Notes: Iron response element I: a 35-nucleotide RNA from Cebus imitator. The organism belongs to Cebus, within Eukaryota. Pairs were carried over by alignment from the consensus structure, which is taken from published work. Gene Ontology term of the family: response to iron ion. The family's RNA type in Rfam is cis-regulatory element.
RNA sequence: CAGUUUCCUGCUCCAACAGUGCUUGGAGGGAACCG
Numbered sequence: 001c002a003g004u005u006u007c008c009u010g011c012u013c014c015a016a017c018a019g020u021g022c023u024u025g026g027a028g029g030g031a032a033c034c035g
Stems, first nucleotide, its partner, number of pairs: 001035001003033003007030002012027005017021001